[Rfam]
RNA: Eukaryotic large subunit ribosomal RNA, nucleotides 3903 to 4293
RNA sequence: GACCGUCGUCGCAAUGGUAAUUCAGCUUAGUACGAGAGGAACCGCUGAUUCAAAUAAUUGGUUUUUGCGGCUGUCUGACAAGGCAGUGCCGCGAAGCUACCAUUUGCUGGAUAAUGGCUGAACGCCUCUAAGUCAGAAUCCAUGCCAGAAAGCGAUGAUUUUCUCCUACACAUCGUAGUCGGAUACGAAUAGGCCUUUGGCCCUGAAUCUUAGCUGGUUGGCAACGGCACUCUAGUUGAAGUCUGGAGUGUUAGCUGACGUCUUGCAAUUUUACAAUGCGUAGGAAUAGGACUUUUGCAUACGACUUAAUUGUGAAACACGGUGCUGUAAAUAGUAGAGUAGCCUUGUUGUUACGAUCUAUUGAGGCUAAGCCGUUUUUUCCUUCGCCUUC
Numbered sequence: 001g002a003c004c005g006u007c008g009u010c011g012c013a014a015u016g017g018u019a020a021u022u023c024a025g026c027u028u029a030g031u032a033c034g035a036g037a038g039g040a041a042c043c044g045c046u047g048a049u050u051c052a053a054a055u056a057a058u059u060g061g062u063u064u065u066u067g068c069g070g071c072u073g074u075c076u077g078a079c080a081a082g083g084c085a086g087u088g089c090c091g092c093g094a095a096g097c098u099a100c101c102a103u104u105u106g107c108u109g110g111a112u113a114a115u116g117g118c119u120g121a122a123c124g125c126c127u128c129u130a131a132g133u134c135a136g137a138a139u140c141c142a143u144g145c146c147a148g149a150a151a152g153c154g155a156u157g158a159u160u161u162u163c164u165c166c167u168a169c170a171c172a173u174c175g176u177a178g179u180c181g182g183a184u185a186c187g188a189a190u191a192g193g194c195c196u197u198u199g200g201c202c203c204u205g206a207a208u209c210u211u212a213g214c215u216g217g218u219u220g221g222c223a224a225c226g227g228c229a230c231u232c233u234a235g236u237u238g239a240a241g242u243c244u245g246g247a248g249u250g251u252u253a254g255c256u257g258a259c260g261u262c263u264u265g266c267a268a269u270u271u272u273a274c275a276a277u278g279c280g281u282a283g284g285a286a287u288a289g290g291a292c293u294u295u296u297g298c299a300u301a302c303g304a305c306u307u308a309a310u311u312g313u314g315a316a317a318c319a320c321g322g323u324g325c326u327g328u329a330a331a332u333a334g335u336a337g338a339g340u341a342g343c344c345u346u347g348u349u350g351u352u353a354c355g356a357u358c359u360a361u362u363g364a365g366g367c368u369a370a371g372c373c374g375u376u377u378u379u380u381c382c383u384u385c386g387c388c389u390u391c
Base pairs, nucleotide, nucleotide: 005159006158007157008156009155010154011153012152015147016146017145018144020050022048023047024046025045026044051106052105053104054103055102059099060098061097066093067092068091069090070089071086072085073084074083075082076081108142109141110140115135116134117133118132119131165284166283167282168281169280171278288389289388290387293309294308297305314381315380316379317378319376320374321373322372324367325366331361332360333359334358336357339354340353341352342351343350